[Rfam]
RNA sequence: AAAAAGGGCAGGCCUUGCCUAAGGCACAAAAUGGCGGUUCGUCCGUCGUUGUGGUGAAUCGCGAUCAAGAGAUUUGCCCUGCAUAAUUUGUGAGCAGCCGUUGGAAUGGGCCUGCUUGGCUAAUUCCAUCGGC
Numbered sequence: 001a002a003a004a005a006g007g008g009c010a011g012g013c014c015u016u017g018c019c020u021a022a023g024g025c026a027c028a029a030a031a032u033g034g035c036g037g038u039u040c041g042u043c044c045g046u047c048g049u050u051g052u053g054g055u056g057a058a059u060c061g062c063g064a065u066c067a068a069g070a071g072a073u074u075u076g077c078c079c080u081g082c083a084u085a086a087u088u089u090g091u092g093a094g095c096a097g098c099c100g101u102u103g104g105a106a107u108g109g110g111c112c113u114g115c116u117u118g119g120c121u122a123a124u125u126c127c128a129u130c131g132g133c
Stems, first nucleotide, its partner, number of pairs: 008082005013024004025053005032048006054077007099131002102128006110120003
Rfam assigns this 133-nucleotide sequence from Phytophthora megakarya to the family "U11 spliceosomal RNA". A reference for the family is Montzka and Steitz (1988), "Additional low-abundance human small nuclear ribonucleoproteins: U11, U12, etc", Proc Natl Acad Sci U S A. Lineage of the source: Eukaryota > Oomycota > Peronosporales > Peronosporaceae > Phytophthora. The family is grouped with related families in Rfam's "U1 clan". It scores 72 bits against the family's covariance model. The family's RNA type in Rfam is spliceosomal small nuclear RNA.